[Rfam]
RNA: Small nucleolar RNA SNORD63
RNA sequence: GUGCGAUGAUGCAUUUUAUUCAACACAUCAUUCUGAAAAUAGAUGUGUAGAGAAAUGAUAACUGAGCACA
Numbered sequence: 001g002u003g004c005g006a007u008g009a010u011g012c013a014u015u016u017u018a019u020u021c022a023a024c025a026c027a028u029c030a031u032u033c034u035g036a037a038a039a040u041a042g043a044u045g046u047g048u049a050g051a052g053a054a055a056u057g058a059u060a061a062c063u064g065a066g067c068a069c070a
Stems, first nucleotide, its partner, number of pairs: 001069004